[Rfam]
RNA: TPP riboswitch aptamer (THI element)
Organism: Roseicella aerolata
RNA sequence: CCCGACACCUGGGGGAGCCCCAUGCGGGGCUGAGAGGCGGGAACGGGCCCGCGACCCCUGGAACCUGACCCGGUUCGGACCGGCGUAGGGAAGGUGCGCGGAUCGCGG
Number, nucleotide and partner (000 for none) at each position: 001c000002c000003c000004g000005a000006c096007a095008c094009c093010u092011g058012g057013g056014g055015g000016a000017g030018c029019c028020c027021c026022a000023u000024g000025c000026g021027g020028g019029g018030c017031u000032g000033a000034g000035a000036g000037g052038c051039g050040g049041g048042a000043a000044c000045g000046g000047g000048c041049c040050c039051g038052c037053g000054a000055c014056c013057c012058c011059u000060g000061g000062a000063a000064c089065c088066u087067g086068a000069c000070c083071c082072g081073g080074u000075u000076c000077g000078g000079a000080c073081c072082g071083g070084c000085g000086u067087a066088g065089g064090g000091a000092a010093g009094g008095u007096g006097c000098g000099c000100g000101g000102a000103u000104c000105g000106c000107g000108g000